The record is a 50-nucleotide RNA from Gossypium arboreum, which matches "Plastid-psbN 5UTR RNA" in Rfam. For this family Rfam cites "The primary transcriptome of barley chloroplasts: numerous noncoding RNAs and the dominating role of the plastid-encoded RNA polymerase" (Zhelyazkova et al., Plant Cell, 2012). Plastid psbN is a non-coding RNA (ncRNA) recognised in plastids. It was reported as a conserved 11 stem-loop in the prime untranslated region (5UTR) of psbN genes. It has been reported that the motif is retained in a subset of mature transcripts in barley, which can suggests a possible role in transcript alternative 5 prime processing. By type it is a cis-regulatory element. The base pairs follow the family's consensus structure, which was predicted with LocARNA.
[Rfam]
RNA sequence: UCAAAGGAGUCGUUCCCCAUCCAGGGGCUACCUUACCAUAUUUCGAAUUC
Numbered sequence: 001u002c003a004a005a006g007g008a009g010u011c012g013u014u015c016c017c018c019a020u021c022c023a024g025g026g027g028c029u030a031c032c033u034u035a036c037c038a039u040a041u042u043u044c045g046a047a048u049u050c
Stems, first nucleotide, its partner, number of pairs: 006034002009031002012028005